[Rfam]
RNA sequence: CCCUCCCGUGCCUACUGAACUGGUAUCAGUGUUUUAUCUGAAACUGGCUCAGUUCAGCAGGAACCGAAG
Numbered sequence: 001c002c003c004u005c006c007c008g009u010g011c012c013u014a015c016u017g018a019a020c021u022g023g024u025a026u027c028a029g030u031g032u033u034u035u036a037u038c039u040g041a042a043a044c045u046g047g048c049u050c051a052g053u054u055c056a057g058c059a060g061g062a063a064c065c066g067a068a069g
Base pairs, nucleotide, nucleotide: 003069004068006066008064009063011061012060013059015057016056017055018054019053020052021051022050023049026047027046028045029044030043
Dot-bracket structure: ..((.(.((.(((.(((((((((..(((((............))))).))))))))).))).)).).))
Source information:
This 69-nucleotide sequence from Gadus morhua belongs to the Rfam family "mir-24 microRNA precursor family". Taxonomically the source falls in Gadus (Eukaryota, Neopterygii, Euteleosteomorpha, Eurypterygia). This family represents the microRNA (miRNA) mir-24 family. miRNAs are transcribed as ~70nt precursors (modelled here) and subsequently processed by the Dicer enzyme to give a ~22nt product. The family's consensus secondary structure was predicted with RNAalifold.